[Rfam]
RNA: small nucleolar RNA snoR137
Organism: Ipomoea nil
RNA sequence: GUUGCUUUUUAAUGGUGAACCCCUUCAUAAACCAAAUGAGGGAUGUUCAAGUUUCCGAAGCAUAGAUCAAAUGUCAGUAUUAAACAGCAUGGUGCAUUUCCAGUUGCACAUUGCUACCUGUCUCCUGCAACAAAU
Numbered sequence: 001g002u003u004g005c006u007u008u009u010u011a012a013u014g015g016u017g018a019a020c021c022c023c024u025u026c027a028u029a030a031a032c033c034a035a036a037u038g039a040g041g042g043a044u045g046u047u048c049a050a051g052u053u054u055c056c057g058a059a060g061c062a063u064a065g066a067u068c069a070a071a072u073g074u075c076a077g078u079a080u081u082a083a084a085c086a087g088c089a090u091g092g093u094g095c096a097u098u099u100c101c102a103g104u105u106g107c108a109c110a111u112u113g114c115u116a117c118c119u120g121u122c123u124c125c126u127g128c129a130a131c132a133a134a135u
Stems, first nucleotide, its partner, number of pairs: 003062006016049005022042004075127003079123001086115003092109003